Rfam assigns this 148-nucleotide RNA from Croceitalea dokdonensis to the family "SAM riboswitch aptamer (S box leader)". NCBI's taxonomy places the organism under Bacteria, Flavobacteriia, Flavobacteriaceae, Croceitalea, Croceitalea dokdonensis. It scores 64 bits against the family's covariance model. Rfam describes the family as follows. The SAM riboswitch is found upstream of a number of genes which code for proteins involved in methionine or cysteine biosynthesis in Gram-positive bacteria.
RNA sequence: AAGUUAUCAAGAAAGGUGGAGGGAUUAGACCCUUUGAAGCCUUAGCAACCUGCUGUUCCAUACAGAGAAGGUGCUACAUUCUACCCACUCCAAAACAACUUUGGGGAACCAACGGUUCUAGCGAACCUUUAUUUGGGAAGGAUAACAA
Numbered sequence: 001a002a003g004u005u006a007u008c009a010a011g012a013a014a015g016g017u018g019g020a021g022g023g024a025u026u027a028g029a030c031c032c033u034u035u036g037a038a039g040c041c042u043u044a045g046c047a048a049c050c051u052g053c054u055g056u057u058c059c060a061u062a063c064a065g066a067g068a069a070g071g072u073g074c075u076a077c078a079u080u081c082u083a084c085c086c087a088c089u090c091c092a093a094a095a096c097a098a099c100u101u102u103g104g105g106g107a108a109c110c111a112a113c114g115g116u117u118c119u120a121g122c123g124a125a126c127c128u129u130u131a132u133u134u135g136g137g138a139a140g141g142a143u144a145a146c147a148a
Base pairs, nucleotide, nucleotide: 003146004145005144006143007142008141013043014042015041016040017039021032022031023030026083027082028081029080044075045074046073047072049071050070051067053065054064079140084137085136086135087134